The family of this 85-nucleotide sequence from Ornithorhynchus anatinus is "mir-497 microRNA precursor family". On this family, see Gu et al., FEBS Lett 2007: "Identification and characterization of microRNAs from the bovine adipose tissue and mammary gland". Its family is annotated with miRNA-mediated post-transcriptional gene silencing and RISC complex in the Gene Ontology.

RNA sequence: CCCGCCCCCGCCCCAGCAGCACACCGUGGUUUGUACGGCGAUGCGGCCGCGUCCAAACCACGCUGUGUUGUUAGAGCGAGGGCGG
Numbered sequence: 001c002c003c004g005c006c007c008c009c010g011c012c013c014c015a016g017c018a019g020c021a022c023a024c025c026g027u028g029g030u031u032u033g034u035a036c037g038g039c040g041a042u043g044c045g046g047c048c049g050c051g052u053c054c055a056a057a058c059c060a061c062g063c064u065g066u067g068u069u070g071u072u073a074g075a076g077c078g079a080g081g082g083c084g085g
Stems, first nucleotide, its partner, number of pairs: 012082003015072004020067004025062009035052003038047002